RNA sequence: UCCUUCCUUGUUUAGGGGAGCUGAGUGUACCAAUGAACGUCUAGUGAGGUCACUUCUGCUAACACCCCGUUAUUUUACCCGCAUCCACUUUUAUUUGUAAAAAUAAAAUAGUGUGGUGCAAUUUUUGGGCAU
Numbered sequence: 001u002c003c004u005u006c007c008u009u010g011u012u013u014a015g016g017g018g019a020g021c022u023g024a025g026u027g028u029a030c031c032a033a034u035g036a037a038c039g040u041c042u043a044g045u046g047a048g049g050u051c052a053c054u055u056c057u058g059c060u061a062a063c064a065c066c067c068c069g070u071u072a073u074u075u076u077a078c079c080c081g082c083a084u085c086c087a088c089u090u091u092u093a094u095u096u097g098u099a100a101a102a103a104u105a106a107a108a109u110a111g112u113g114u115g116g117u118g119c120a121a122u123u124u125u126u127g128g129g130c131a132u
Stems, first nucleotide, its partner, number of pairs: 005019005020059002023056001024054004029050003037045002081119005086113001089108008
This 132-nucleotide sequence from Ignelater luminosus belongs to the Rfam family "U4atac minor spliceosomal RNA". U4atac is an essential component of the minor U12-type spliceosome complex which is required for removal of the rarer class of eukaryotic introns (AT-AC, U12-type). Rfam 15.1 lists 1,648 matches to the family in 818 species. Clan: U4 clan. Its family is annotated with pre-mRNA 5'-splice site binding, spliceosomal tri-snRNP complex assembly and U4atac snRNP in the Gene Ontology. On this family, see Lorkovic et al., RNA 2005: "Evolutionary conservation of minor U12-type spliceosome between plants and humans". Lineage of the source: Eukaryota > Ecdysozoa > Dicondylia > Pterygota > Ignelater.